[Rfam]
RNA sequence: ACAUAAAAGCAGAAGCAUCCCGCUUCUCGCCUAAGUGAUUAAGAUUGCUAGGCUAAUUUUCGGAUGAAAACCACUUUUUGUGGGAUUGAGAGCGGGUAUAUUUAUAUAUCCGCUCUUUUUCUGCUUU
Numbered sequence: 001a002c003a004u005a006a007a008a009g010c011a012g013a014a015g016c017a018u019c020c021c022g023c024u025u026c027u028c029g030c031c032u033a034a035g036u037g038a039u040u041a042a043g044a045u046u047g048c049u050a051g052g053c054u055a056a057u058u059u060u061c062g063g064a065u066g067a068a069a070a071c072c073a074c075u076u077u078u079u080g081u082g083g084g085a086u087u088g089a090g091a092g093c094g095g096g097u098a099u100a101u102u103u104a105u106a107u108a109u110c111c112g113c114u115c116u117u118u119u120u121c122u123g124c125u126u127u
Base pairs, nucleotide, nucleotide: 011027012026013025014024015023016022029053030052031051035048036047037046038045039044091114092113093112094111095110096109097108098107099106100105
Dot-bracket structure: ..........((((((.....)))))).(((...(((((....)))))..))).....................................((((((((((....)))))))))).............

Shown here is a 127-nucleotide RNA from Apilactobacillus ozensis, a member of the family "Ribosomal protein L20 leader".
Rfam classes the family as a cis-regulatory leader.
The organism belongs to Apilactobacillus ozensis, within Bacteria.
Its family is annotated with regulation of gene expression in the Gene Ontology.
For this family Rfam cites "Diverse mechanisms for regulating ribosomal protein synthesis in Escherichia coli" (Zengel and Lindahl, Prog Nucleic Acid Res Mol Biol, 1994).